RNA: Small nucleolar RNA snoR27
Organism: Corchorus capsularis
RNA sequence: UUUGGAUCCAUGAUGUUAUUUUACUAUCUGCGUUAUCUUUCUGAACUUCCUUUUUUAAGGGAUUGAAGAUAACUUUUUUUGAUGCUGAGAUCCAAU
Numbered sequence: 001u002u003u004g005g006a007u008c009c010a011u012g013a014u015g016u017u018a019u020u021u022u023a024c025u026a027u028c029u030g031c032g033u034u035a036u037c038u039u040u041c042u043g044a045a046c047u048u049c050c051u052u053u054u055u056u057a058a059g060g061g062a063u064u065g066a067a068g069a070u071a072a073c074u075u076u077u078u079u080u081g082a083u084g085c086u087g088a089g090a091u092c093c094a095a096u
Stems, first nucleotide, its partner, number of pairs: 002095006